[Rfam]
RNA sequence: UAGCGAAAAAUGUAGAACUAAAAAUUAAUAGUAAGACUAGGAACCACCUUCUUUGCUAACUCAAUCUCCCUUGAGUUAGCUUUUUC
Numbered sequence: 001u002a003g004c005g006a007a008a009a010a011u012g013u014a015g016a017a018c019u020a021a022a023a024a025u026u027a028a029u030a031g032u033a034a035g036a037c038u039a040g041g042a043a044c045c046a047c048c049u050u051c052u053u054u055g056c057u058a059a060c061u062c063a064a065u066c067u068c069c070c071u072u073g074a075g076u077u078a079g080c081u082u083u084u085u086c
Base pairs, nucleotide, nucleotide: 039052040051041050042049055080056079057078058077059076060075061074062073063072064071

Notes: The family of this 86-nucleotide RNA from Arsenophonus sp. ENCA is "CyaR/Rye RNA". By type it is a small RNA. The family's consensus secondary structure was predicted with PFOLD. On this family, see Wassarman et al., Genes Dev 2001: "Identification of novel small RNAs using comparative genomics and microarrays".